Rfam assigns this 85-nucleotide RNA sequence from Streptomyces minutiscleroticus to the family "Streptomyces RNA 6106". The pairing is the family consensus, mapped onto this sequence. On this family, see Vockenhuber et al., RNA Biol 2011: "Deep sequencing-based identification of small non-coding RNAs in Streptomyces coelicolor". The family's RNA type in Rfam is small RNA.

[Rfam]
RNA sequence: GCGCCGCGCGAGCGGCGCACGUGGGCCGCCACGCGGUCCUACGAGCGGGGGUGGUGCCGUGUCGGCGCAGCACCACCCCCGCGCG
Dot-bracket structure: (((((((....))))))).(((((((((.....))).)))))).(((((((((((((.(((....))).)))))))))))))...
Identified by deep sequencing of transcriptome at the end of exponential growth phase. Appears smaller on northern blot than sequencing transcript. This indicates processing step. Streptomyces specific.